[Rfam]
RNA sequence: GAGUGUGCCCGAGUGGCGAGGUUAAGGGGAUAAACCCCGAAGCCGUAGGGAAACCGAAGGCCCGCAGCCCUUAUGGGCGAGGGGCCGCGUCCUAUACGGGCGUAAGUCACUCGGGCACGACCAGAAGCCCGGCGAUCUACCCCGGGGCAGGGUGAAGCGGGGUUUUUCCCCGUGGAGGCCCGAAGGGGUGGUGGCCUAUCCCCUCCUCUGACCCCGGGGUAGGGGCGAUAUACCAAUCGAGCCGGGUGAUAGCUGGUU
Numbered sequence: 001g002a003g004u005g006u007g008c009c010c011g012a013g014u015g016g017c018g019a020g021g022u023u024a025a026g027g028g029g030a031u032a033a034a035c036c037c038c039g040a041a042g043c044c045g046u047a048g049g050g051a052a053a054c055c056g057a058a059g060g061c062c063c064g065c066a067g068c069c070c071u072u073a074u075g076g077g078c079g080a081g082g083g084g085c086c087g088c089g090u091c092c093u094a095u096a097c098g099g100g101c102g103u104a105a106g107u108c109a110c111u112c113g114g115g116c117a118c119g120a121c122c123a124g125a126a127g128c129c130c131g132g133c134g135a136u137c138u139a140c141c142c143c144g145g146g147g148c149a150g151g152g153u154g155a156a157g158c159g160g161g162g163u164u165u166u167u168c169c170c171c172g173u174g175g176a177g178g179c180c181c182g183a184a185g186g187g188g189u190g191g192u193g194g195c196c197u198a199u200c201c202c203c204u205c206c207u208c209u210g211a212c213c214c215c216g217g218g219g220u221a222g223g224g225g226c227g228a229u230a231u232a233c234c235a236a237u238c239g240a241g242c243c244g245g246g247u248g249a250u251a252g253c254u255g256g257u258u
Base pairs, nucleotide, nucleotide: 005118006117007116008115009114010113011112012111013110014109015108016107017106020044021043022042023041026038027037028036029035048055049054060085061084062083063082067078068077069076070075088102089101090100091099121256122255124253128246129245130244131243132242133241137222138221139220140219141218142217143216144215145214146213147212148210150181151180152179153178157173158172159171160170161169162168185207186206187205188204190203191202193201194200224234225233